[Rfam]
RNA sequence: CCUGGCAGUGAUGCCACCCUUGCCCUCGCUGAGAACUCUGUUCAGUAAUGAGCCUCUCUCCUCUCAGCUGAGCCAGG
Numbered sequence: 001c002c003u004g005g006c007a008g009u010g011a012u013g014c015c016a017c018c019c020u021u022g023c024c025c026u027c028g029c030u031g032a033g034a035a036c037u038c039u040g041u042u043c044a045g046u047a048a049u050g051a052g053c054c055u056c057u058c059u060c061c062u063c064u065c066a067g068c069u070g071a072g073c074c075a076g077g
Stems, first nucleotide, its partner, number of pairs: 001077006
RNA: Small nucleolar RNA SNORD103/SNORD85